[Rfam]
Description
A member of the RNA family "TPP riboswitch aptamer (THI element)" from Geodermatophilus ruber, 113 nucleotides long.

RNA sequence: CCCUGCCACCGCGGGAGCCCGGCGUACCGGGCUGAGAAGUCGGCUGAGACGGCCGCUGACCGCCACAACCUGAUCCGGGUCAUACCGGCGUAGGGAGGGAGAGCCGAUGACGG
Numbered sequence: 001c002c003c004u005g006c007c008a009c010c011g012c013g014g015g016a017g018c019c020c021g022g023c024g025u026a027c028c029g030g031g032c033u034g035a036g037a038a039g040u041c042g043g044c045u046g047a048g049a050c051g052g053c054c055g056c057u058g059a060c061c062g063c064c065a066c067a068a069c070c071u072g073a074u075c076c077g078g079g080u081c082a083u084a085c086c087g088g089c090g091u092a093g094g095g096a097g098g099g100a101g102a103g104c105c106g107a108u109g110a111c112g113g
Base pairs, nucleotide, nucleotide: 006101009098010097011063012062013061014060016057017032018031019030020029021028039056041055042054043053044052045051046050069094070093071092072091075088076087077086078085